[Rfam]
RNA sequence: GCGCCCAUGAUGUAGCGGCAGCCUACUGCCUUGCCAUGGCGGAUGUGUGGGUUCGACUCCCACUGGGCGCU
Numbered sequence: 001g002c003g004c005c006c007a008u009g010a011u012g013u014a015g016c017g018g019c020a021g022c023c024u025a026c027u028g029c030c031u032u033g034c035c036a037u038g039g040c041g042g043a044u045g046u047g048u049g050g051g052u053u054c055g056a057c058u059c060c061c062a063c064u065g066g067g068c069g070c071u
Base pairs, nucleotide, nucleotide: 001070002069003068004067005066006065007064010024012022013021026042027041028040029039030038047063048062049061050060051059
Background
tRNA: a 71-nucleotide RNA from Lignipirellula cremea. The family's RNA type in Rfam is transfer RNA. It scores 52 bits against the family's covariance model. Rfam describes the family as follows. Transfer RNA (tRNA) molecules are approximately 80 nucleotides in length. Its family is annotated with triplet codon-amino acid adaptor activity in the Gene Ontology.